[Rfam]
RNA: TPP riboswitch aptamer (THI element)
RNA sequence: UAUUCUCCCAAGGGGAGCUCCAUACUGCGGGGCUGAGAGGAGGGAGGCAAUCCCUCGACCCUACGAACCUGAUCCGGGUAAUACCGGCGGAGGGAUUGGGAGUGGUAAUUAUU
Numbered sequence: 001u002a003u004u005c006u007c008c009c010a011a012g013g014g015g016a017g018c019u020c021c022a023u024a025c026u027g028c029g030g031g032g033c034u035g036a037g038a039g040g041a042g043g044g045a046g047g048c049a050a051u052c053c054c055u056c057g058a059c060c061c062u063a064c065g066a067a068c069c070u071g072a073u074c075c076g077g078g079u080a081a082u083a084c085c086g087g088c089g090g091a092g093g094g095a096u097u098g099g100g101a102g103u104g105g106u107a108a109u110u111a112u113u
Base pairs, nucleotide, nucleotide: 006101007100008099009098010097011062012061013060014059017033018032019031020030021029040056041055042054043053044052068093069092070091074087075086076085077084